RNA sequence: AUUUAUGUGGCCAGUUGCGGUCAAGGCUGACUGUUGCCUGAAGAAGAGGUAA
Numbered sequence: 001a002u003u004u005a006u007g008u009g010g011c012c013a014g015u016u017g018c019g020g021u022c023a024a025g026g027c028u029g030a031c032u033g034u035u036g037c038c039u040g041a042a043g044a045a046g047a048g049g050u051a052a
Base pairs, nucleotide, nucleotide: 009022010021011020012019

Rfam assigns this 52-nucleotide RNA sequence to the family "algC RNA". The family's RNA type in Rfam is cis-regulatory element.